[Rfam]
RNA sequence: UCAGGCUUCUUCAAGGCCAUAGCAGAAGCACUCUUGGCAUGGCCCUGUCAGAGUCCAACAAAUCUGUGAAUUCUGCU
Numbered sequence: 001u002c003a004g005g006c007u008u009c010u011u012c013a014a015g016g017c018c019a020u021a022g023c024a025g026a027a028g029c030a031c032u033c034u035u036g037g038c039a040u041g042g043c044c045c046u047g048u049c050a051g052a053g054u055c056c057a058a059c060a061a062a063u064c065u066g067u068g069a070a071u072u073c074u075g076c077u
Base pairs, nucleotide, nucleotide: 015044016043017042018041021077022076023075024074025073026072027071028040049066050065051064052063054061
The family of this 77-nucleotide RNA from Crocodylus porosus is "Mammalian CPEB3 ribozyme". The mammalian CPEB3 ribozyme is a self cleaving RNA located in the second intron of the CPEB3 gene which belongs to a family of genes regulating messenger RNA polyadenylation. This ribozyme is highly conserved and found only in mammals. The CPEB3 ribozyme is structurally and biochemically related to the human hepatitis delta virus (HDV) ribozyme and the HDV ribozyme is proposed to have arisen from the human transcriptome. There is currently only one other known self cleaving ribozyme in mammals, the CoTC motif.